The record is a 465-nucleotide RNA from Tricholaema leucomelas, which matches "Vertebrate telomerase RNA" in Rfam. The base pairs follow the family's consensus structure, which is taken from published work. Telomerase is a ribonucleoprotein reverse transcriptase that synthesises telomeric DNA. Telomerase RNAs differ greatly in sequence and structure between vertebrates, ciliates and yeasts, but they share a 5' pseudoknot structure close to the template sequence. Vertebrate telomerase RNAs have a 3' H/ACA snoRNA-like domain. Its Rfam clan is "Telomerase clan". Rfam links the family to the GO terms telomerase catalytic core complex, telomere maintenance via telomerase and telomerase activity. The family has 37 seed sequences and 523 matches in Rfam 15.1. Taxonomically the source falls in Tricholaema lacrymosa (Eukaryota, Opisthokonta, Bilateria, Euteleostomi). The literature on the family includes a 2000 paper in Cell by Chen et al., "Secondary structure of vertebrate telomerase RNA". By type it is a non-coding RNA gene.

RNA sequence: UGGCGCGGGAGGAGGGGAGGACCUGGGGGUGACUAACCCUAAUGGAUGUGGGUGCGCUCACCGCGACCGUCCGCUGUUUUACUCGCUGACUUUCAGCGGACGAGGGGAGUGGCUCGGGGGAGGGGCGGAAGGGAAAGGGGUCCGCUAUGGAAAAAAAACCAAAAAACGUCAGCGAGGGGUUCUCCUCACCCCAGCCCGCCCUGGGGUCUCCGUGUGUUGUCCACUACAAGCGGGGGCGCGCUGCAGCGAGUCCCGCCGCCGCACAUCCUUGAGGCCGCGGUCGGCCGGCACCCGCUAAUGCCGCCGCGAAGAGUUCGUCUCUGUCAGCCUUAGCGGCGGCCGGGAGCGAAAGGGCUCGUCCCCCGCACCGGGAGACCCCAGCACAACAAAAAGGAGGGUGCCCGUGGUCCACGCGCCGCGUUCCCUUCCCGUGGGGCGCGUGCAGCUGGGCUCGCUCCGACACGC
Number, nucleotide and partner (000 for none) at each position: 001u000002g000003g000004c000005g000006c198007g197008g192009g191010a000011g189012g000013a000014g186015g185016g184017g183018a000019g000020g181021a180022c179023c178024u177025g000026g000027g000028g000029g000030u000031g000032a000033c000034u000035a000036a000037c000038c000039c000040u000041a000042a000043u000044g000045g000046a000047u000048g000049u000050g000051g000052g000053u000054g000055c000056g110057c109058u108059c107060a000061c000062c000063g000064c000065g000066a000067c000068c102069g101070u100071c099072c098073g097074c096075u095076g094077u000078u000079u000080u000081a000082c000083u000084c000085g173086c172087u171088g170089a169090c168091u166092u165093u164094c076095a075096g074097c073098g072099g071100a070101c069102g068103a000104g000105g000106g000107g059108a058109g057110u056111g000112g000113c000114u000115c000116g000117g000118g000119g000120g000121a000122g000123g000124g000125g000126c000127g000128g000129a000130a000131g000132g000133g000134a000135a000136a000137g000138g000139g000140g000141u000142c000143c000144g000145c000146u000147a000148u000149g000150g000151a000152a000153a000154a000155a000156a000157a000158a000159c000160c000161a000162a000163a000164a093165a092166a091167c000168g090169u089170c088171a087172g086173c085174g000175a000176g000177g024178g023179g022180u021181u020182c000183u017184c016185c015186u014187c000188a000189c011190c000191c009192c008193a000194g000195c000196c000197c007198g006199c000200c000201c381202u380203g379204g378205g377206g376207u375208c000209u000210c000211c000212g000213u000214g000215u000216g000217u000218u000219g000220u000221c000222c000223a000224c000225u000226a000227c000228a000229a000230g000231c000232g000233g362234g361235g360236g359237c358238g357239c000240g355241c354242u000243g000244c000245a000246g000247c000248g000249a000250g347251u345252c344253c343254c342255g341256c000257c000258g337259c336260c335261g334262c333263a000264c000265a000266u000267c000268c000269u000270u000271g000272a000273g000274g000275c000276c308277g307278c306279g305280g304281u000282c303283g302284g301285c300286c000287g296288g295289c294290a000291c000292c000293c000294g289295c288296u287297a000298a000299u000300g285301c284302c283303g282304c280305c279306g278307c277308g276309a000310a322311g321312a320313g319314u000315u000316c000317g000318u000319c313320u312321c311322u310323g000324u000325c000326a000327g000328c000329c000330u000331u000332a000333g262334c261335g260336g259337c258338g000339g000340c000341c255342g254343g253344g252345a251346g000347c250348g000349a000350a000351a000352g000353g000354g241355c240356u000357c238358g237359u236360c235361c234362c233363c000364c000365g000366c000367a000368c000369c000370g000371g000372g000373a000374g000375a207376c206377c205378c204379c203380a202381g201382c000383a000384c000385a000386a000387c000388a000389a000390a000391a000392a000393g000394g457395a456396g455397g000398g453399u000400g451401c450402c449403c448404g000405u000406g000407g000408u000409c000410c000411a000412c000413g000414c000415g000416c445417c000418g443419c442420g441421u000422u000423c436424c435425c434426u433427u000428c000429c000430c000431g000432u000433g426434g425435g424436g423437c000438g000439c000440g000441u420442g419443c418444a000445g416446c000447u000448g403449g402450g401451c400452u000453c398454g000455c396456u395457c394458c000459g000460a000461c000462a000463c000464g000465c000